RNA sequence: CUGCUUAUGCUAAGGUGCAUUUAGUGCAGAUAGUGAAAUAGACUCGCACCUACUGCCCUAAGUGCCCCUUCUGGCAUAAGGG
Numbered sequence: 001c002u003g004c005u006u007a008u009g010c011u012a013a014g015g016u017g018c019a020u021u022u023a024g025u026g027c028a029g030a031u032a033g034u035g036a037a038a039u040a041g042a043c044u045c046g047c048a049c050c051u052a053c054u055g056c057c058c059u060a061a062g063u064g065c066c067c068c069u070u071c072u073g074g075c076a077u078a079a080g081g082g
Stems, first nucleotide, its partner, number of pairs: 004080004009075003013069003017065008026056002029054001031052003
mir-17 microRNA precursor family: an 82-nucleotide sequence from Sinocyclocheilus anshuiensis. Its family is annotated with RISC complex and miRNA-mediated post-transcriptional gene silencing in the Gene Ontology. For this family Rfam cites "Identification of novel genes coding for small expressed RNAs" (Lagos-Quintana et al., Science, 2001). This family represents the microRNA (miRNA) precursor mir-17, family, which includes mir-20, mir-91, and mir-103. miRNAs are transcribed as ~70nt precursors (modelled here) and subsequently processed by the Dicer enzyme to give a ~22nt product. In this case the mature sequence comes from the 3' arm of the precursor.